[Rfam]
RNA sequence: GACCGCGCACAACGGCUUCCUGGCGUGCGUGGAAAAAUUCAAUGGAGCA
Dot-bracket structure: ...(((((((..(([[[.[[))..)))))))............]]]]].
A member of the RNA family "SAM/SAH riboswitch aptamer" from Palleronia marisminoris, 49 nucleotides long.
NCBI's taxonomy places the organism under Bacteria, Pseudomonadati, Alphaproteobacteria, Roseobacteraceae, Palleronia.
The base pairs follow the family's consensus structure, which is taken from published work.